[Rfam]
RNA sequence: AACUCCAUAAUCAACCAUGCGUUCCACUGGCGUCACUGAUACUUAAAUCCAUUAUUUCGGUUUGAUGCCUUAAAUAUAUGGUGGUACUAUGAAAGAUGCAUGGGAGAAUGACGGUUUAAGAUGUAUCUCCAGCUAUUGAAUGCGGGAAAGCUUUUCUCUUUUUUGCAGCUCAAAUCUGAUAUAGUUGGUCAUGAUUCUUGCGACAAAU
Numbered sequence: 001a002a003c004u005c006c007a008u009a010a011u012c013a014a015c016c017a018u019g020c021g022u023u024c025c026a027c028u029g030g031c032g033u034c035a036c037u038g039a040u041a042c043u044u045a046a047a048u049c050c051a052u053u054a055u056u057u058c059g060g061u062u063u064g065a066u067g068c069c070u071u072a073a074a075u076a077u078a079u080g081g082u083g084g085u086a087c088u089a090u091g092a093a094a095g096a097u098g099c100a101u102g103g104g105a106g107a108a109u110g111a112c113g114g115u116u117u118a119a120g121a122u123g124u125a126u127c128u129c130c131a132g133c134u135a136u137u138g139a140a141u142g143c144g145g146g147a148a149a150g151c152u153u154u155u156c157u158c159u160u161u162u163u164u165g166c167a168g169c170u171c172a173a174a175u176c177u178g179a180u181a182u183a184g185u186u187g188g189u190c191a192u193g194a195u196u197c198u199u200g201c202g203a204c205a206a207a208u
Stems, first nucleotide, its partner, number of pairs: 015103008029070002031067004035061004043054001077095001079093001081090002118199001120197002129188008141167004146162005
The family of this 208-nucleotide RNA from Lachancea thermotolerans is "Small nucleolar RNA snR31". Clan: SNORA8 clan. Its family is annotated with nucleolus and RNA processing in the Gene Ontology. The source organism's lineage runs through Eukaryota, Saccharomycotina, Saccharomycetales, Lachancea and Lachancea thermotolerans.